A member of the RNA family "Iron response element I" from Cnephaeus nilssonii, 35 nucleotides long. The match comes from Rfam's covariance-model search (36 bits).
RNA sequence: CUGCCUCUUGCUUCCACAGUGUUUGGAUGGAGCGG
Numbered sequence: 001c002u003g004c005c006u007c008u009u010g011c012u013u014c015c016a017c018a019g020u021g022u023u024u025g026g027a028u029g030g031a032g033c034g035g
Stems, first nucleotide, its partner, number of pairs: 001035004006031003010028001012027003016023001017021001

Pairs were carried over by alignment from the consensus structure, which is taken from published work. Lineage of the source: Eukaryota > Bilateria > Craniata > Yangochiroptera > Cnephaeus. Its family is annotated with response to iron ion in the Gene Ontology. Rfam classes the family as a cis-regulatory element.